[Rfam]
RNA: Magnesium riboswitch aptamer (Magnesium responsive RNA element)
Organism: Klebsiella pneumoniae
RNA sequence: CUUACCGGAGAUAGUUAUGGACCCCGAUCCCACUCCUCAUCCUCGAUGGAGCAACCUUUCUUUCCGGUAAGCCUGUUUAACACUGCUUUACCGGAAAGCGUAAAGCAGUGACGUCCU
Numbered sequence: 001c002u003u004a005c006c007g008g009a010g011a012u013a014g015u016u017a018u019g020g021a022c023c024c025c026g027a028u029c030c031c032a033c034u035c036c037u038c039a040u041c042c043u044c045g046a047u048g049g050a051g052c053a054a055c056c057u058u059u060c061u062u063u064c065c066g067g068u069a070a071g072c073c074u075g076u077u078u079a080a081c082a083c084u085g086c087u088u089u090a091c092c093g094g095a096a097a098g099c100g101u102a103a104a105g106c107a108g109u110g111a112c113g114u115c116c117u
Base pairs, nucleotide, nucleotide: 001071002070003069004068005067006066007065008064009063010062011061018032019031020030038051040049041048082109083108084107085106086105087104088103089102090101091100